[Rfam]
RNA sequence: AUAUGUCGAACGCUGAAUCCCUGGAGACAGGGAACGGGGGAACCAAUUUAUGGGGGUGAAUCCUGUAGACCUCUACAGGUAGGGUUAGCUUUCGACCCGAACCCGGCAGCUAACCUCGUAAGCGUGGAAAGCAGGUUAA
Dot-bracket structure: ..........((((...((((((....))))))((((((....(........)(((.....((((..........))))..((((.........))))...))).........)))))).))))...............
This 139-nucleotide RNA sequence from Thermanaeromonas toyohensis belongs to the Rfam family "c-di-AMP riboswitch aptamer (ydaO/yuaA leader)". NCBI's taxonomy places the organism under Bacteria, Bacillati, Clostridia, Neomoorellaceae, Thermanaeromonas toyohensis.